[Rfam]
RNA: c-di-GMP-I riboswitch aptamer
Organism: Desulfosporosinus sp. I2
RNA sequence: CAGCGCUAAGGGCAAACCUGUCAAAAGAUAGGGACGCAAAGCCAUAUGGUCUAAGGUGCUUACCAGCACUAUGAUAGCCUGGCUACCGCA
Numbered sequence: 001c002a003g004c005g006c007u008a009a010g011g012g013c014a015a016a017c018c019u020g021u022c023a024a025a026a027g028a029u030a031g032g033g034a035c036g037c038a039a040a041g042c043c044a045u046a047u048g049g050u051c052u053a054a055g056g057u058g059c060u061u062a063c064c065a066g067c068a069c070u071a072u073g074a075u076a077g078c079c080u081g082g083c084u085a086c087c088g089c090a
Stems, first nucleotide, its partner, number of pairs: 012037002017032006040084004046080001048078001049075003056069004